[Rfam]
RNA sequence: GCGGGUAUAGCUCAGUUGGUAGAGCACUUCCUUGCCAAGGAAGAUGUCGAGAGUUCGAGUCUCUUUGCCCGCU
Numbered sequence: 001g002c003g004g005g006u007a008u009a010g011c012u013c014a015g016u017u018g019g020u021a022g023a024g025c026a027c028u029u030c031c032u033u034g035c036c037a038a039g040g041a042a043g044a045u046g047u048c049g050a051g052a053g054u055u056c057g058a059g060u061c062u063c064u065u066u067g068c069c070c071g072c073u
Stems, first nucleotide, its partner, number of pairs: 001072007010025004027043005049065005
Rfam assigns this 73-nucleotide RNA from Notodromas monacha to the family "tRNA". The base pairs follow the family's consensus structure, which is taken from published work. Rfam classes the family as a transfer RNA. The match comes from Rfam's covariance-model search (70 bits). About the family: Transfer RNA (tRNA) molecules are approximately 80 nucleotides in length. Lineage of the source: Eukaryota > Pancrustacea > Ostracoda > Podocopida > Notodromas. Its Rfam clan is "tRNA clan".